This 91-nucleotide RNA sequence from Pelagibacterales bacterium SAG-MED15 belongs to the Rfam family "SAR11_0636 sRNA".
On this family, see Meyer et al., BMC Genomics 2009: "Identification of candidate structured RNAs in the marine organism 'Candidatus Pelagibacter ubique'".
RNA sequence: GGUUGUAUUUUGAGUCUGUAACUGAAUCAAAAGUGAAUCAAAACGUGAACAUUUAAAACUAUAUAGGGUGUAGUUGUGGAUAAGUAUCACC
Number, nucleotide and partner (000 for none) at each position: 001g091002g090003u089004u000005g087006u000007a000008u000009u057010u056011u055012g054013a052014g000015u048016c047017u000018g000019u000020a000021a000022c000023u040024g039025a038026a000027u036028c035029a034030a000031a000032a000033g000034u029035g028036a027037a000038u025039c024040a023041a000042a000043a000044c000045g000046u000047g016048a015049a000050c000051a000052u013053u000054u012055a011056a010057a009058a000059c079060u078061a077062u076063a075064u000065a000066g000067g000068g000069u000070g000071u000072a000073g000074u000075u063076g062077u061078g060079g059080a000081u000082a000083a000084g000085u000086a000087u005088c000089a003090c002091c001